[Rfam]
RNA: mir-214 microRNA precursor family
RNA sequence: UGCCUGUCUACACUUGCUGUGCAGACCUUCCUAUCCUGUACAGCAGGCACAGACAGGCAGA
Numbered sequence: 001u002g003c004c005u006g007u008c009u010a011c012a013c014u015u016g017c018u019g020u021g022c023a024g025a026c027c028u029u030c031c032u033a034u035c036c037u038g039u040a041c042a043g044c045a046g047g048c049a050c051a052g053a054c055a056g057g058c059a060g061a
Stems, first nucleotide, its partner, number of pairs: 001059009013047001015045006022038003